Rfam assigns this 146-nucleotide RNA sequence from Nonomuraea sp. PA05 to the family "c-di-AMP riboswitch aptamer (ydaO/yuaA leader)".
[Rfam]
RNA sequence: GAGUCCGUCGGGCCUAAUCCACGCAGCCGCUGCGUGGAGCCGGGGACCCACUUUCCCCCCAGGGGCGAAUCGGCGGUCAUCGCCGUAGGGCUGUCUUCCAGGCCCGAGCCCGUCAGCUAACCCGGUCGGCCGUAUGGAAGGACAGU
Dot-bracket structure: ..........((((...((((((((.....))))))))((((((....(............)(((.....((((.......))))..((((..........))))...))).........)))))).))))...............